[Rfam]
RNA sequence: GGGGCGGGCCGUGACUGGCGCUGAGGUGGAGCACCACCGGGGAGCGGUCCGUGACCCCUCAUGCCGUGCGCCUGGGCGACACCG
Numbered sequence: 001g002g003g004g005c006g007g008g009c010c011g012u013g014a015c016u017g018g019c020g021c022u023g024a025g026g027u028g029g030a031g032c033a034c035c036a037c038c039g040g041g042g043a044g045c046g047g048u049c050c051g052u053g054a055c056c057c058c059u060c061a062u063g064c065c066g067u068g069c070g071c072c073u074g075g076g077c078g079a080c081a082c083c084g
Stems, first nucleotide, its partner, number of pairs: 004052009015041002017072005026037004062078004
The record is an 84-nucleotide RNA from Streptomyces longwoodensis, which matches "ZMP/ZTP riboswitch aptamer (pfl RNA motif)" in Rfam. NCBI's taxonomy places the organism under Bacteria, Bacillati, Kitasatosporales, Streptomycetaceae, Streptomyces. A search with the family's covariance model found it, with a score of 60 bits.